[Rfam]
RNA sequence: GCAUCCGUAGCUCAGCUGGAUAGAGUACUCGGCUACGAACCGAGCGGUCGGAGGUUCGAAUCCUCCUGGAUGCA
Numbered sequence: 001g002c003a004u005c006c007g008u009a010g011c012u013c014a015g016c017u018g019g020a021u022a023g024a025g026u027a028c029u030c031g032g033c034u035a036c037g038a039a040c041c042g043a044g045c046g047g048u049c050g051g052a053g054g055u056u057c058g059a060a061u062c063c064u065c066c067u068g069g070a071u072g073c074a
Base pairs, nucleotide, nucleotide: 001073002072003071004070005069006068007067010026011025012024013023028044029043030042031041032040050066051065052064053063054062
Background: The record is a 74-nucleotide sequence from Escherichia coli, which matches "tRNA" in Rfam. The family's RNA type in Rfam is transfer RNA. Pairs were carried over by alignment from the consensus structure, which is taken from published work. Taxonomically the source falls in Escherichia coli O139:H28 (Bacteria, Enterobacterales, Enterobacteriaceae, Escherichia coli). The match comes from Rfam's covariance-model search (64 bits).